[Rfam]
RNA sequence: AGAACCUUUAAAUCCAGUCCCGUGAGGCUGGCAAGGGCACGGAAAAAUUACAGGCAAUAUCUUCCUGUUUUUCAAAAAGCCUUUUGUCUGCCAGCGAACUGGACAAAAGGCUUUUUUUGU
Numbered sequence: 001a002g003a004a005c006c007u008u009u010a011a012a013u014c015c016a017g018u019c020c021c022g023u024g025a026g027g028c029u030g031g032c033a034a035g036g037g038c039a040c041g042g043a044a045a046a047a048u049u050a051c052a053g054g055c056a057a058u059a060u061c062u063u064c065c066u067g068u069u070u071u072u073c074a075a076a077a078a079g080c081c082u083u084u085u086g087u088c089u090g091c092c093a094g095c096g097a098a099c100u101g102g103a104c105a106a107a108a109g110g111c112u113u114u115u116u117u118u119g120u
Stems, first nucleotide, its partner, number of pairs: 005036004014031006043072004050068005056062001075115016
The family of this 120-nucleotide RNA sequence from Thermoactinomyces mirandus is "PyrR binding site". Rfam 15.1 lists 1,498 matches to the family in 930 species. The source organism's lineage runs through Bacteria, Bacillota, Bacilli, Caryophanales and Thermoactinomyces. This family represents the PyrR binding site and terminator structure. This RNA structure is found upstream of a variety of genes involved in pyrimidine biosynthesis and transport. The alignment also includes a portion of the antiterminator structure. The family's RNA type in Rfam is cis-regulatory element. It scores 67 bits against the family's covariance model. Its family is annotated with pyrimidine nucleobase biosynthetic process and pyrimidine nucleobase transport in the Gene Ontology.